[Rfam]
RNA sequence: UCCCCUACAGUUUCCCGACUCUCGUUUUCCGCAAGGAAUGUCUAUCGCAGACCCCUCUACCAAGGCUUGUUCGGCCGCAAUAUGCCGCUUCCGAGCCUGCUCCAGGACUUCGUUGAAUGCUGCAGCUGGAUCUAUUGCGGCCAGUCUCCGUCUGGCACCCGGACGGCCAAGCCUAGCGGGGGGAACGAGUCUCGGAACUUAACCCUAAGCAUACAU
Numbered sequence: 001u002c003c004c005c006u007a008c009a010g011u012u013u014c015c016c017g018a019c020u021c022u023c024g025u026u027u028u029c030c031g032c033a034a035g036g037a038a039u040g041u042c043u044a045u046c047g048c049a050g051a052c053c054c055c056u057c058u059a060c061c062a063a064g065g066c067u068u069g070u071u072c073g074g075c076c077g078c079a080a081u082a083u084g085c086c087g088c089u090u091c092c093g094a095g096c097c098u099g100c101u102c103c104a105g106g107a108c109u110u111c112g113u114u115g116a117a118u119g120c121u122g123c124a125g126c127u128g129g130a131u132c133u134a135u136u137g138c139g140g141c142c143a144g145u146c147u148c149c150g151u152c153u154g155g156c157a158c159c160c161g162g163a164c165g166g167c168c169a170a171g172c173c174u175a176g177c178g179g180g181g182g183g184a185a186c187g188a189g190u191c192u193c194g195g196a197a198c199u200u201a202a203c204c205c206u207a208a209g210c211a212u213a214c215a216u
Stems, first nucleotide, its partner, number of pairs: 009199003015195004
The family of this 216-nucleotide part of an RNA from Trichoderma citrinoviride is "Ascomycota telomerase RNA". The family is grouped with related families in Rfam's "Telomerase clan". The family's RNA type in Rfam is non-coding RNA gene. A reference for the family is Qi et al. (2013), "The common ancestral core of vertebrate and fungal telomerase RNAs", Nucleic Acids Res.